[Rfam]
RNA sequence: GCUGUCAAUGGUAGCGUGAGAGCAUAAGGAAUUAACAGCUUUUAACUA
Numbered sequence: 001g002c003u004g005u006c007a008a009u010g011g012u013a014g015c016g017u018g019a020g021a022g023c024a025u026a027a028g029g030a031a032u033u034a035a036c037a038g039c040u041u042u043u044a045a046c047u048a
Stems, first nucleotide, its partner, number of pairs: 001039005007033003
RNA: Bacillus-plasmid RNA
Organism: Lactiplantibacillus plantarum